[Rfam]
RNA sequence: GGAUUGGUGGCAGUUAAGACUUGCAGUGAUGUUUAGGGCAUUGAUCACAUGAACAUCACUUUAAGUCUGUGCUGGCUCCU
Numbered sequence: 001g002g003a004u005u006g007g008u009g010g011c012a013g014u015u016a017a018g019a020c021u022u023g024c025a026g027u028g029a030u031g032u033u034u035a036g037g038g039c040a041u042u043g044a045u046c047a048c049a050u051g052a053a054c055a056u057c058a059c060u061u062u063a064a065g066u067c068u069g070u071g072c073u074g075g076c077u078c079c080u
Stems, first nucleotide, its partner, number of pairs: 017068007026059010
RNA: mir-499 microRNA precursor family